[Rfam]
RNA sequence: GCUGGUGAUGAUGACACACUUGCCCUCACUGAGAUCCGUCACAGGGAUUGUUGUUGAGAACAUCCUGUGUGCUCAUUUGGGCUGAGCCUGC
Numbered sequence: 001g002c003u004g005g006u007g008a009u010g011a012u013g014a015c016a017c018a019c020u021u022g023c024c025c026u027c028a029c030u031g032a033g034a035u036c037c038g039u040c041a042c043a044g045g046g047a048u049u050g051u052u053g054u055u056g057a058g059a060a061c062a063u064c065c066u067g068u069g070u071g072c073u074c075a076u077u078u079g080g081g082c083u084g085a086g087c088c089u090g091c
Stems, first nucleotide, its partner, number of pairs: 001091002004088003
Dot-bracket structure: ((.(((...............................................................................))).))

Rfam assigns this 91-nucleotide sequence from Furnarius figulus to the family "Small nucleolar RNA SNORD103/SNORD85". Rfam 15.1 lists 1,349 matches to the family in 595 species. The match comes from Rfam's covariance-model search (49 bits). The literature on the family includes a 2001 paper in EMBO J by Huttenhofer et al., "RNomics: an experimental approach that identifies 201 candidates for novel, small, non-messenger RNAs in mouse". Gene Ontology terms of the family: RNA processing and nucleolus. NCBI's taxonomy places the organism under Eukaryota, Craniata, Archosauria, Australaves, Furnarius. Pairs were carried over by alignment from the consensus structure.